[Rfam]
RNA sequence: AAAAAAGCAAUACCGCCCUCUUGAUAGAACAAGAGGGCGGUAUUUCUUCUUUUUAUAU
Numbered sequence: 001a002a003a004a005a006a007g008c009a010a011u012a013c014c015g016c017c018c019u020c021u022u023g024a025u026a027g028a029a030c031a032a033g034a035g036g037g038c039g040g041u042a043u044u045u046c047u048u049c050u051u052u053u054u055a056u057a058u
Stems, first nucleotide, its partner, number of pairs: 001052003005048003009044006018035006
This 58-nucleotide RNA from Angelica polymorpha belongs to the Rfam family "Plastid-psbA-3 3UTR RNA".
The sequence is in the family's curated seed alignment.
For this family Rfam cites "Retrograde signaling in plants: A critical review focusing on the GUN pathway and beyond" (Richter et al., Plant Commun, 2023).
Clan: Plastid-psbA 3UTR RNA clan.